[Rfam]
RNA sequence: AAAUUCUCUGUAAAAUUCAUUUAUGAAUAAAUUUAUUACGAUCUGUUCUUAUCAGCUUAAUAUCUGAUAUGUUAGGCAAUGCCUAACUCAUAUAUUAAACUGAUUUUUGGACUUCGGCCAUGGGAUUGAAGCUUGCUUCGCCCUGGCCACGGGUUGUCUCGGUAUUGCACUACAUCCGAGUACGGCCCCUUCCCC
Numbered sequence: 001a002a003a004u005u006c007u008c009u010g011u012a013a014a015a016u017u018c019a020u021u022u023a024u025g026a027a028u029a030a031a032u033u034u035a036u037u038a039c040g041a042u043c044u045g046u047u048c049u050u051a052u053c054a055g056c057u058u059a060a061u062a063u064c065u066g067a068u069a070u071g072u073u074a075g076g077c078a079a080u081g082c083c084u085a086a087c088u089c090a091u092a093u094a095u096u097a098a099a100c101u102g103a104u105u106u107u108u109g110g111a112c113u114u115c116g117g118c119c120a121u122g123g124g125a126u127u128g129a130a131g132c133u134u135g136c137u138u139c140g141c142c143c144u145g146g147c148c149a150c151g152g153g154u155u156g157u158c159u160c161g162g163u164a165u166u167g168c169a170c171u172a173c174a175u176c177c178g179a180g181u182a183c184g185g186c187c188c189c190u191u192c193c194c195c
Base pairs, nucleotide, nucleotide: 007026008025012021013020050069051068052067053066054065055064071087072086073085074084075083076082077081116148117147118146119145120144122142123141128139129138130137131136151188152187153186154185155184156183158180159179160178161177162176
Rfam assigns this 195-nucleotide RNA from Paramuricea clavata to the family "U2 spliceosomal RNA". Rfam links the family to the GO terms pre-mRNA branch point binding, mRNA branch site recognition and U2 snRNP. The organism belongs to Paramuricea, within Eukaryota. The family's RNA type in Rfam is spliceosomal small nuclear RNA. The match comes from Rfam's covariance-model search (124 bits). The literature on the family includes a 1997 paper in Nucleic Acids Res by Zwieb, "The uRNA database".